[Rfam]
The record is a 416-nucleotide RNA from Imperialibacter sp. EC-SDR9, which matches "Bacterial RNase P class A" in Rfam.
Rfam classes the family as a ribozyme.
Taxonomically the source falls in Imperialibacter (Bacteria, Pseudomonadati, Cytophagia, Cytophagales).
RNA sequence: AAUGUGAUCCGCCUUAUCGCCUUGUUCAGAAAGUAUUCUGAGCGGGGAGGAAAGUCCGGGCAAUGCAGAGCGCCGUACUUCCUAACAGGAAGGGGCAUUGUUGGCGACGACAGUGCUACAGAAAGUGCAACAGAAAAUAAACUACCCGCAAUGCUUCUGCAUUGGGGGAAAAGGUGAAAAGGUGGGGUAAGAGCCCACCGCUUCAAUGGUGACAUUGGGGGCACGGUAAACCUUACGGAUUGAAAGAUCAAAUAUGCCAUGAUUCAGGGGCUGCUCGUCUCUGUAGGCUGCUUCGGCGGUCUCGUUGUGGUGGGUAGAUUGAUAGAACCUGGUGGCGACAUCAGGUCCAGAUAAAUGAUAAGGGUCUUCCGACUUGUCGGGAGGCACAGAACCCGGCUUACAGGAUCAUAUUUUCC
Numbered sequence: 001a002a003u004g005u006g007a008u009c010c011g012c013c014u015u016a017u018c019g020c021c022u023u024g025u026u027c028a029g030a031a032a033g034u035a036u037u038c039u040g041a042g043c044g045g046g047g048a049g050g051a052a053a054g055u056c057c058g059g060g061c062a063a064u065g066c067a068g069a070g071c072g073c074c075g076u077a078c079u080u081c082c083u084a085a086c087a088g089g090a091a092g093g094g095g096c097a098u099u100g101u102u103g104g105c106g107a108c109g110a111c112a113g114u115g116c117u118a119c120a121g122a123a124a125g126u127g128c129a130a131c132a133g134a135a136a137a138u139a140a141a142c143u144a145c146c147c148g149c150a151a152u153g154c155u156u157c158u159g160c161a162u163u164g165g166g167g168g169a170a171a172a173g174g175u176g177a178a179a180a181g182g183u184g185g186g187g188u189a190a191g192a193g194c195c196c197a198c199c200g201c202u203u204c205a206a207u208g209g210u211g212a213c214a215u216u217g218g219g220g221g222c223a224c225g226g227u228a229a230a231c232c233u234u235a236c237g238g239a240u241u242g243a244a245a246g247a248u249c250a251a252a253u254a255u256g257c258c259a260u261g262a263u264u265c266a267g268g269g270g271c272u273g274c275u276c277g278u279c280u281c282u283g284u285a286g287g288c289u290g291c292u293u294c295g296g297c298g299g300u301c302u303c304g305u306u307g308u309g310g311u312g313g314g315u316a317g318a319u320u321g322a323u324a325g326a327a328c329c330u331g332g333u334g335g336c337g338a339c340a341u342c343a344g345g346u347c348c349a350g351a352u353a354a355a356u357g358a359u360a361a362g363g364g365u366c367u368u369c370c371g372a373c374u375u376g377u378c379g380g381g382a383g384g385c386a387c388a389g390a391a392c393c394c395g396g397c398u399u400a401c402a403g404g405a406u407c408a409u410a411u412u413u414u415c416c
Stems, first nucleotide, its partner, number of pairs: 001412010011401001012363007020047011052399003056396005061242004070274002073238005078092005093119001094117010120233002125231002127227002142173002145168002149164006181199006200222001201220008246320004256311006267303005327346008